[Rfam]
The record is a 58-nucleotide RNA from Patrinia scabiosifolia, which matches "Plastid-psbA-3 3UTR RNA" in Rfam. Clan: Plastid-psbA 3UTR RNA clan. Rfam's curators write: Plastid psbA-3 is a non-coding RNA (ncRNA) present in plastids. By type it is a cis-regulatory element. The sequence is in the family's curated seed alignment. For this family Rfam cites "Retrograde signaling in plants: A critical review focusing on the GUN pathway and beyond" (Richter et al., Plant Commun, 2023).
RNA sequence: AAAAGGAGCAAUAAGGCCCUCUUGAUAGACCAAGAGGGGUUUUUUGCUCCCCCUUUUU
Numbered sequence: 001a002a003a004a005g006g007a008g009c010a011a012u013a014a015g016g017c018c019c020u021c022u023u024g025a026u027a028g029a030c031c032a033a034g035a036g037g038g039g040u041u042u043u044u045u046g047c048u049c050c051c052c053c054u055u056u057u058u
Base pairs, nucleotide, nucleotide: 005050006049007048008047009046010045011044013042014041015040019036020035021034022033023032024031